Description
Shown here is a 69-nucleotide RNA sequence from Saccharothrix violaceirubra, a member of the family "ASpks TB sRNA". It is annotated as an antisense RNA. A search with the family's covariance model found it, with a score of 66 bits. Taxonomically the source falls in Saccharothrix (Bacteria, Bacillati, Actinomycetota, Pseudonocardiaceae).
RNA sequence: CUUGACCGAGCCCAGCCGCAACGGCUCGGUGCGCGCCUGGCCGUAGGUCGCCAGCAGGGCCUGCGCCUC
Numbered sequence: 001c002u003u004g005a006c007c008g009a010g011c012c013c014a015g016c017c018g019c020a021a022c023g024g025c026u027c028g029g030u031g032c033g034c035g036c037c038u039g040g041c042c043g044u045a046g047g048u049c050g051c052c053a054g055c056a057g058g059g060c061c062u063g064c065g066c067c068u069c
Stems, first nucleotide, its partner, number of pairs: 014026004027063001032059001037054003041050001043048001